[Rfam]
RNA sequence: GGGCACCUACGGGGGCCUAGAACAUCAGGGAAGCGAAAGCUUCCCGCACAAGCAAACGGAAGACAGUUA
Numbered sequence: 001g002g003g004c005a006c007c008u009a010c011g012g013g014g015g016c017c018u019a020g021a022a023c024a025u026c027a028g029g030g031a032a033g034c035g036a037a038a039g040c041u042u043c044c045c046g047c048a049c050a051a052g053c054a055a056a057c058g059g060a061a062g063a064c065a066g067u068u069a
Stems, first nucleotide, its partner, number of pairs: 001018004006014003028045007

The family of this 69-nucleotide RNA sequence is "L2-Alphaproteobacteria ribosomal protein leader". For this family Rfam cites "Discovery of 20 novel ribosomal leader candidates in bacteria and archaea" (Eckert and Weinberg, BMC Microbiol, 2020). Rfam classes the family as a cis-regulatory leader.